[Rfam]
RNA sequence: UUUUGGUCAAUGAUGUUCAACAAAUUUCUGCGUUAUCUAUCUGCAAAUUUCCUGUUAAAGGAUUUGAAGAUGAUCAUAUUGUUACUGAGAUCUGCA
Dot-bracket structure: (.(.(((..................................................................................))).).)
Numbered sequence: 001u002u003u004u005g006g007u008c009a010a011u012g013a014u015g016u017u018c019a020a021c022a023a024a025u026u027u028c029u030g031c032g033u034u035a036u037c038u039a040u041c042u043g044c045a046a047a048u049u050u051c052c053u054g055u056u057a058a059a060g061g062a063u064u065u066g067a068a069g070a071u072g073a074u075c076a077u078a079u080u081g082u083u084a085c086u087g088a089g090a091u092c093u094g095c096a
Stems, first nucleotide, its partner, number of pairs: 001096001003094001005092003
Rfam assigns this 96-nucleotide RNA sequence from Rhamnella rubrinervis to the family "Small nucleolar RNA snoR27". By type it is a C/D-box small nucleolar RNA. The source organism's lineage runs through Eukaryota, Viridiplantae, eudicotyledons, Gunneridae and Rhamnella. The family has 6 seed sequences and 649 matches in Rfam 15.1. The family's consensus secondary structure was predicted with WAR. On this family, see Brown et al., RNA 2001: "Multiple snoRNA gene clusters from Arabidopsis". Its family is annotated with nucleolus and RNA processing in the Gene Ontology.